Shown here is an 83-nucleotide RNA from Eleutherodactylus coqui, a member of the family "Small nucleolar RNA MBII-202".
By type it is a C/D-box small nucleolar RNA.
NCBI's taxonomy places the organism under Eukaryota, Teleostomi, Dipnotetrapodomorpha, Amphibia, Eleutherodactylus.
RNA sequence: GGAUGACAACUUCUCCAGAAUCUCUGCAUAGCUGUGAUGAUUUGUUUGAACCCUUUGAAGCUGAUGACCCCCUAUGAGUCUUC
Dot-bracket structure: .((.((........................................................................)).))

Notes: On this family, see Huttenhofer et al., EMBO J 2001: "RNomics: an experimental approach that identifies 201 candidates for novel, small, non-messenger RNAs in mouse". The family's consensus secondary structure was predicted with PFOLD.